[Rfam]
Overview: The family of this 83-nucleotide sequence from Capsicum baccatum is "mir-156 microRNA precursor family". NCBI's taxonomy places the organism under Eukaryota, asterids, Solanaceae, Solanoideae, Capsicum. Gene Ontology terms of the family: RISC complex and miRNA-mediated post-transcriptional gene silencing.
RNA sequence: GUGACAGAAGAGAGUGAGCACACAUGGUUCUUGCAUGGAAGUUCCAUGCUUGAAGUUUUGCGUGCUCGCUCUCUAUCUGUCAC
Numbered sequence: 001g002u003g004a005c006a007g008a009a010g011a012g013a014g015u016g017a018g019c020a021c022a023c024a025u026g027g028u029u030c031u032u033g034c035a036u037g038g039a040a041g042u043u044c045c046a047u048g049c050u051u052g053a054a055g056u057u058u059u060g061c062g063u064g065c066u067c068g069c070u071c072u073c074u075a076u077c078u079g080u081c082a083c
Stems, first nucleotide, its partner, number of pairs: 001083008010073012023060002
A search with the family's covariance model found it, with a score of 79 bits.
Rfam describes the family as follows. This family represents the plant microRNA (miRNA) precursor mir-156.
The base pairs follow the family's consensus structure, which was predicted with PFOLD.